[Rfam]
RNA: RNase MRP
Organism: Diachasma alloeum
Nucleotides: 282
Stems, first nucleotide, its partner, number of pairs: 003281003007277005015234005022065006036052005042046001070268003074265004086098004099114006116207001122202004130196004140190003237252006
Number, partner (000 for none) and nucleotide at each position: 001000u002000u003281g004280u005279u006000c007277c008276c009275u010274c011273g012000a013000g014000c015234c016233g017232c018231a019230c020000c021000g022065c023064g024063g025062a026061g027060c028000c029000a030000c031000u032000u033000u034000c035000u036052g037051a038050g039049u040048u041000c042046u043000u044000u045000a046042g047000u048040a049039a050038c051037u052036c053000u054000a055000a056000u057000c058000u059000a060027g061026c062025u063024c064023u065022g066000a067000g068000g069000a070268a071267g072266g073000u074265c075264c076263c077262u078000g079000g080000a081000u082000c083000c084000c085000c086098g087097a088096c089095a090000g091000a092000g093000a094000g095089u096088g097087u098086c099114g100113u101112a102111g103110c104109a105000u106000a107000a108000a109104u110103g111102c112101u113100g114099c115000u116207a117000g118000c119000c120000u121000c122202c123201g124200c125199c126000g127000u128000c129000a130196u131195c132194u133193c134000g135000a136000u137000c138000u139000c140190g141189g142188a143000u144000g145000g146000g147000a148000c149000g150000u151000u152000g153000u154000g155000u156000g157000c158000g159000g160000u161000u162000g163000u164000u165000u166000c167000a168000c169000g170000a171000c172000u173000u174000c175000c176000a177000u178000g179000c180000g181000u182000g183000a184000c185000u186000g187000a188142u189141c190140u191000u192000c193133g194132a195131g196130a197000u198000g199125g200124g201123c202122g203000a204000g205000a206000g207116u208000g209000u210000a211000u212000u213000g214000g215000u216000c217000a218000a219000a220000g221000u222000a223000a224000a225000g226000u227000a228000a229000u230019g231018u232017g233016c234015g235000c236000a237252u238251c239250g240249g241248u242247c243000g244000c245000c246000u247242g248241a249240c250239c251238g252237a253000u254000a255000a256000c257000u258000c259000a260000a261000c262077a263076g264075g265074g266072c267071c268070u269000u270000u271000u272000a273011c274010g275009a276008g277007g278000a279005a280004a281003c282000u